[Rfam]
RNA sequence: AAUAUAAAUGAGCCGAAAGUUUAUUAAAAUAAACUGCGGGGGACCCAAAAAUGGGGUGAAUCGUCUAUUAUGACGUAGGCUAUUUCCCAAGCCGAACCCGACAGCUAACCUCGUAGGCUACAGGGAGGGUUUAA
Numbered sequence: 001a002a003u004a005u006a007a008a009u010g011a012g013c014c015g016a017a018a019g020u021u022u023a024u025u026a027a028a029a030u031a032a033a034c035u036g037c038g039g040g041g042g043a044c045c046c047a048a049a050a051a052u053g054g055g056g057u058g059a060a061u062c063g064u065c066u067a068u069u070a071u072g073a074c075g076u077a078g079g080c081u082a083u084u085u086c087c088c089a090a091g092c093c094g095a096a097c098c099c100g101a102c103a104g105c106u107a108a109c110c111u112c113g114u115a116g117g118c119u120a121c122a123g124g125g126a127g128g129g130u131u132u133a134a
Base pairs, nucleotide, nucleotide: 011119012118013117014116018035019034020033021032022031023030024029036114037113038112039111040110041109046053047052054099055098056097062075063074064073065072078093079092080091081090
RNA: c-di-AMP riboswitch aptamer (ydaO/yuaA leader)